[Rfam]
RNA: MIR5200 microRNA precursor family
RNA sequence: UAAAGCCUUAGGGAGUAUCUACAGUGGCAAGUACUUUUCCACCAAGAAAGAAGAAUACUACCAGUGUAGAUACUCUCUAAGGCUUUA
Numbered sequence: 001u002a003a004a005g006c007c008u009u010a011g012g013g014a015g016u017a018u019c020u021a022c023a024g025u026g027g028c029a030a031g032u033a034c035u036u037u038u039c040c041a042c043c044a045a046g047a048a049a050g051a052a053g054a055a056u057a058c059u060a061c062c063a064g065u066g067u068a069g070a071u072a073c074u075c076u077c078u079a080a081g082g083c084u085u086u087a
Base pairs, nucleotide, nucleotide: 001087002086003085004084005083006082007081008080009079010078011077013075014074016072017071018070019069020068021067022066023065030059031058032057034053035052036051037050038049
Dot-bracket structure: (((((((((((.((.((((((((......(((.(((((..........)))))...))).....)))))))).)).)))))))))))